[Rfam]
RNA sequence: AACGUCCUUAUUGAGGGUAGCAAUGACGCGGUCAAUGAGCGUAUGGCGAGGUCCGUCGUGCUAACACCUUUACUUACAACAUUUACACCCCUCACUAACACUGGGUGGGUAAUUUUUGGCAAC
Dot-bracket structure: ....(.(((.....))).)(((...(((.((((.....((.....))..)))))))..))).........................((((((((.(...).)))).)))).............
Numbered sequence: 001a002a003c004g005u006c007c008u009u010a011u012u013g014a015g016g017g018u019a020g021c022a023a024u025g026a027c028g029c030g031g032u033c034a035a036u037g038a039g040c041g042u043a044u045g046g047c048g049a050g051g052u053c054c055g056u057c058g059u060g061c062u063a064a065c066a067c068c069u070u071u072a073c074u075u076a077c078a079a080c081a082u083u084u085a086c087a088c089c090c091c092u093c094a095c096u097a098a099c100a101c102u103g104g105g106u107g108g109g110u111a112a113u114u115u116u117u118g119g120c121a122a123c
Stems, first nucleotide, its partner, number of pairs: 005019001007017003020061003026056003030053004039047002087110004091105004096100001
U4atac minor spliceosomal RNA: a 123-nucleotide RNA sequence from Clytia hemisphaerica. It scores 59 bits against the family's covariance model. Its Rfam clan is "U4 clan". U4atac is an essential component of the minor U12-type spliceosome complex which is required for removal of the rarer class of eukaryotic introns (AT-AC, U12-type). The family's consensus secondary structure is taken from published work.